[Rfam]
Nucleotides: 141
Stems, first nucleotide, its partner, number of pairs: 022044006046088010063078005
Number, partner (000 for none) and nucleotide at each position: 001000c002000c003000u004000c005000c006000u007000u008000u009000g010000g011000g012000g013000a014000g015000u016000a017000g018000c019000c020000u021000g022044u023043c024042c025041c026040g027039c028000c029000u030000g031000c032000g033000a034000u035000g036000c037000a038000c039027g040026c041025g042024g043023g044022g045000c046088g047087u048086c049085c050084g051083c052082g053081u054080c055079a056000a057000c058000a059000c060000a061000c062000u063078c064077g065076g066075c067074c068000c069000g070000c071000u072000g073000c074067g075066g076065c077064c078063g079055u080054g081053g082052c083051g084050c085049g086048g087047a088046c089000a090000a091000c092000c093000a094000g095000u096000u097000c098000c099000g100000g101000u102000u103000g104000g105000c106000g107000a108000g109000a110000c111000c112000a113000a114000c115000g116000g117000u118000c119000u120000g121000u122000c123000g124000g125000u126000g127000c128000g129000u130000c131000u132000g133000u134000g135000g136000c137000u138000g139000g140000a141000c

Manganese Mn2+ riboswitch aptamer (yybP-ykoY): a 141-nucleotide RNA sequence from Pseudoxanthomonas sp.
Rfam describes the family as follows. This RNA was originally discovered in E. coli during a large scale screen and was named SraF. The family was later found to exist upstream of related families of protein genes in many bacteria, including the the yybP and ykoK genes in B. subtilis.
NCBI's taxonomy places the organism under Bacteria, Pseudomonadota, Lysobacterales, Lysobacteraceae, Pseudoxanthomonas.
Rfam links the family to the GO term manganese ion binding.